[Rfam]
RNA sequence: UAACACCAGGGGCAAAAGUUCGAAAGUCUGACGCAAGCAAAGCUUACAGGAAGAUUUUUGAACUUGGGACCCGCAAAAUAUGAGUAAGUAGCCAUUUUUCGGAGAAAAAUGAGCGGAGUACGAAUAUUUUGCAGAUUACGGGAGCACGAAGUGCGGAGUAAUCUGGUGCAG
Numbered sequence: 001u002a003a004c005a006c007c008a009g010g011g012g013c014a015a016a017a018g019u020u021c022g023a024a025a026g027u028c029u030g031a032c033g034c035a036a037g038c039a040a041a042g043c044u045u046a047c048a049g050g051a052a053g054a055u056u057u058u059u060g061a062a063c064u065u066g067g068g069a070c071c072c073g074c075a076a077a078a079u080a081u082g083a084g085u086a087a088g089u090a091g092c093c094a095u096u097u098u099u100c101g102g103a104g105a106a107a108a109a110u111g112a113g114c115g116g117a118g119u120a121c122g123a124a125u126a127u128u129u130u131g132c133a134g135a136u137u138a139c140g141g142g143a144g145c146a147c148g149a150a151g152u153g154c155g156g157a158g159u160a161a162u163c164u165g166g167u168g169c170a171g
Stems, first nucleotide, its partner, number of pairs: 001171001004168004010071002013068001017064013032049001033047001035045003074131008084121003091114002093111007133164007144154004